A member of the RNA family "SAM riboswitch aptamer (S box leader)" from Lachnospiraceae bacterium 2_1_46FAA, 103 nucleotides long.
Lineage of the source: Bacteria > Bacillota > Clostridia > Lachnospirales > Lachnospiraceae.
[Rfam]
RNA sequence: CUCUUAUUCAGAGUGGUGGAGGUAAAAGGACUGAUGAAGCCACGGCAACCCCUUGUCACGGACAGGAAGGUGCCAACCUGAGCGAGUAAUCGAACAAUAAGAG
Dot-bracket structure: ((((((((....(((((...(((.....[)))......)))))((((.((.((((.......))))..))))))....]...(((....)))...))))))))
Numbered sequence: 001c002u003c004u005u006a007u008u009c010a011g012a013g014u015g016g017u018g019g020a021g022g023u024a025a026a027a028g029g030a031c032u033g034a035u036g037a038a039g040c041c042a043c044g045g046c047a048a049c050c051c052c053u054u055g056u057c058a059c060g061g062a063c064a065g066g067a068a069g070g071u072g073c074c075a076a077c078c079u080g081a082g083c084g085a086g087u088a089a090u091c092g093a094a095c096a097a098u099a100a101g102a103g
Stems, first nucleotide, its partner, number of pairs: 001103008013043005021032003029079001044074004049070002052066004083092003